[Rfam]
RNA: Plant small nucleolar RNA R71
RNA sequence: AUGCCAGAAGGACACUUUUUGGUCAAUUGCUUGUAUCUUUCCCAAGCUUCAUAGAGGGAUUCACCUUCUUUCUGCCUGAAGGUUUAAACAUCCACCCUAAGCUU
Numbered sequence: 001a002u003g004c005c006a007g008a009a010g011g012a013c014a015c016u017u018u019u020u021g022g023u024c025a026a027u028u029g030c031u032u033g034u035a036u037c038u039u040u041c042c043c044a045a046g047c048u049u050c051a052u053a054g055a056g057g058g059a060u061u062c063a064c065c066u067u068c069u070u071u072c073u074g075c076c077u078g079a080a081g082g083u084u085u086a087a088a089c090a091u092c093c094a095c096c097c098u099a100a101g102c103u104u
Base pairs, nucleotide, nucleotide: 001104003102004101006098054071055070057068